[Rfam]
RNA sequence: CAGCACUGGAUACUAACCGAGCUAUCUGUGUCCCGGCCUUGUGUCAAAGGCUUGGGAUGCAUUGUGAUAGCUGGGUUCAACAAGUGCAAUAUUAAAACAAAAGCCAUGAGUCUUAAGCCCAGCGUGUAAAGACACACACUGAGUUAUAACUCAGCGGCACAGCC
Dot-bracket structure: ..(((((.......((((.((((((((((((((.((((((......)))))).).))))))....))))))).)))).....)))))...............(((................(.((((....)))).).((((((....)))))).)))......
Numbered sequence: 001c002a003g004c005a006c007u008g009g010a011u012a013c014u015a016a017c018c019g020a021g022c023u024a025u026c027u028g029u030g031u032c033c034c035g036g037c038c039u040u041g042u043g044u045c046a047a048a049g050g051c052u053u054g055g056g057a058u059g060c061a062u063u064g065u066g067a068u069a070g071c072u073g074g075g076u077u078c079a080a081c082a083a084g085u086g087c088a089a090u091a092u093u094a095a096a097a098c099a100a101a102a103g104c105c106a107u108g109a110g111u112c113u114u115a116a117g118c119c120c121a122g123c124g125u126g127u128a129a130a131g132a133c134a135c136a137c138a139c140u141g142a143g144u145u146a147u148a149a150c151u152c153a154g155c156g157g158c159a160c161a162g163c164c
Stems, first nucleotide, its partner, number of pairs: 003087005015077004020072007027061006033054001035052006103158003122137001124135004139154006